[Rfam]
The family of this 334-nucleotide part of an RNA from Acetivibrio saccincola is "Bacterial large subunit ribosomal RNA". Pairs were carried over by alignment from the consensus structure, which is taken from published work. It scores 2930 bits against the family's covariance model.

RNA sequence: CGGGAGAAGCGUUGUUAAGGAACUCGGCAAAUUGACCCCGUAAGUUCGCGAGAAGGGGUGCCUGGUAAGACAGGCCGCAGAGAGUAGGCCCAAACAACUGUUUAUCAAAAACACAGGUCUCUGCUAAAUCGAAAGAUGAAGUAUAGGGGCUGACGCCUGCCCGGUGCUGGAAGGUUACGGGGAUCUGUUAGCUUAGAGCGAAGCAGUGAACCUAAGCCCCAGUAAACGGCGGCCGUAACUAUAACGGUCCUAAGGUAGCGAAAUUCCUUGUCAGGUAAGUUCUGACCCGCACGAAAGGCGUAAUGAUUUGGGCGCUGUCUCGACAACGCACCCG
Numbered sequence: 001c002g003g004g005a006g007a008a009g010c011g012u013u014g015u016u017a018a019g020g021a022a023c024u025c026g027g028c029a030a031a032u033u034g035a036c037c038c039c040g041u042a043a044g045u046u047c048g049c050g051a052g053a054a055g056g057g058g059u060g061c062c063u064g065g066u067a068a069g070a071c072a073g074g075c076c077g078c079a080g081a082g083a084g085u086a087g088g089c090c091c092a093a094a095c096a097a098c099u100g101u102u103u104a105u106c107a108a109a110a111a112c113a114c115a116g117g118u119c120u121c122u123g124c125u126a127a128a129u130c131g132a133a134a135g136a137u138g139a140a141g142u143a144u145a146g147g148g149g150c151u152g153a154c155g156c157c158u159g160c161c162c163g164g165u166g167c168u169g170g171a172a173g174g175u176u177a178c179g180g181g182g183a184u185c186u187g188u189u190a191g192c193u194u195a196g197a198g199c200g201a202a203g204c205a206g207u208g209a210a211c212c213u214a215a216g217c218c219c220c221a222g223u224a225a226a227c228g229g230c231g232g233c234c235g236u237a238a239c240u241a242u243a244a245c246g247g248u249c250c251u252a253a254g255g256u257a258g259c260g261a262a263a264u265u266c267c268u269u270g271u272c273a274g275g276u277a278a279g280u281u282c283u284g285a286c287c288c289g290c291a292c293g294a295a296a297g298g299c300g301u302a303a304u305g306a307u308u309u310g311g312g313c314g315c316u317g318u319c320u321c322g323a324c325a326a327c328g329c330a331c332c333c334g
Base pairs, nucleotide, nucleotide: 001334002333003332004331009329010328011327012326013325014324015323016322018320019319020318035059036058037057038056039055044049060075061074062073063072064071076080088313089312090311091310092309093308094307095305096304099113100112101111116151117150118149119148120147121146122145123144124141128137129136130135154300155299156298157297159230160229161228164227165226166223167222168221169220170219173218174217175216179212180211185206186205187204188203191199192198231249232248233247234246235245236244250254260287270286271285272284273283274282275281